[Rfam]
The family of this 138-nucleotide sequence from Durio zibethinus is "mir-166 microRNA precursor family". This family represents the plant microRNA (miRNA) precursor mir-166. Lineage of the source: Eukaryota > Viridiplantae > Malvaceae > Helicteroideae > Durio. The literature on the family includes a 2002 paper in Genes Dev by Reinhart et al., "MicroRNAs in plants".
RNA sequence: UUUGAGGGGAAUGUUGUCUGGCUCGAGGACACUUUUUUAAUCAAUUUUCUUGCACUGGUUUGCUUCUAUGAUCUGAUUAUUGUUGUAAUGGAUUGAUCUUGUGCCAGUGUCGUCGGACCAGGCUUCAUUCCCCCCAAU
Numbered sequence: 001u002u003u004g005a006g007g008g009g010a011a012u013g014u015u016g017u018c019u020g021g022c023u024c025g026a027g028g029a030c031a032c033u034u035u036u037u038u039a040a041u042c043a044a045u046u047u048u049c050u051u052g053c054a055c056u057g058g059u060u061u062g063c064u065u066c067u068a069u070g071a072u073c074u075g076a077u078u079a080u081u082g083u084u085g086u087a088a089u090g091g092a093u094u095g096a097u098c099u100u101g102u103g104c105c106a107g108u109g110u111c112g113u114c115g116g117a118c119c120a121g122g123c124u125u126c127a128u129u130c131c132c133c134c135c136a137a138u
Base pairs, nucleotide, nucleotide: 002137003136004135006133007132008131009130010129011128012127013126016123017122018121019120020119021118024115025114026113